Annotation
Shown here is a 304-nucleotide RNA sequence from Sulfuricella sp., a member of the family "Bacterial RNase P class A". By type it is a ribozyme. The family is grouped with related families in Rfam's "RNaseP clan". Taxonomically the source falls in Sulfuricella (Bacteria, Pseudomonadati, Pseudomonadota, Nitrosomonadales).
[Rfam]
RNA sequence: GAAGUUAGCCAGGCAGUCGCUGCCCGCGCAAGCGGGGAGAGGAAAGUCCGGGCUCCAUAGAGCAGGAUGCCGGUUAAUGGCCGGCCGCCGCGAGGCGAGGAAUAGGGCCACAGAGACGAGUAAACCCCGGUUUCGGCCGGGGUGGACGUGAAACGCGGUAACCUCCAUCCGGAGCAAGGCCAAAUAGGCAGGCUGUGACGUUGCUCGCCGAGCCUGCGGGUAGGCUGCUUGAGCCUUGGGGUAACUCAAGGCCUAGAGGAAUGACUGUCCACGACAGAACCCGGCUUAUCGGCUGACUUCCCCC
Numbered sequence: 001g002a003a004g005u006u007a008g009c010c011a012g013g014c015a016g017u018c019g020c021u022g023c024c025c026g027c028g029c030a031a032g033c034g035g036g037g038a039g040a041g042g043a044a045a046g047u048c049c050g051g052g053c054u055c056c057a058u059a060g061a062g063c064a065g066g067a068u069g070c071c072g073g074u075u076a077a078u079g080g081c082c083g084g085c086c087g088c089c090g091c092g093a094g095g096c097g098a099g100g101a102a103u104a105g106g107g108c109c110a111c112a113g114a115g116a117c118g119a120g121u122a123a124a125c126c127c128c129g130g131u132u133u134c135g136g137c138c139g140g141g142g143u144g145g146a147c148g149u150g151a152a153a154c155g156c157g158g159u160a161a162c163c164u165c166c167a168u169c170c171g172g173a174g175c176a177a178g179g180c181c182a183a184a185u186a187g188g189c190a191g192g193c194u195g196u197g198a199c200g201u202u203g204c205u206c207g208c209c210g211a212g213c214c215u216g217c218g219g220g221u222a223g224g225c226u227g228c229u230u231g232a233g234c235c236u237u238g239g240g241g242u243a244a245c246u247c248a249a250g251g252c253c254u255a256g257a258g259g260a261a262u263g264a265c266u267g268u269c270c271a272c273g274a275c276a277g278a279a280c281c282c283g284g285c286u287u288a289u290c291g292g293c294u295g296a297c298u299u300c301c302c303c304c
Base pairs, nucleotide, nucleotide: 001300002299003298004297005296006295007294008293009292010291011289012269013268014267015266016265017264018263020039021038023036024035025034026033027032044287045286046285048284049283050282051281052280053174054173055172056171060206061205062204063203065170066169067168068167069166070084071083072082073081074080085099086097087096088095089094100165101164105163106162107159108158109157124143125142126141127140128139129138130137131136178226179225180224181223188217189216190215191214192213193212199210200209233252234251235250236249237248238247239246240245
Pairs were carried over by alignment from the consensus structure, which is taken from published work. The match comes from Rfam's covariance-model search (252 bits).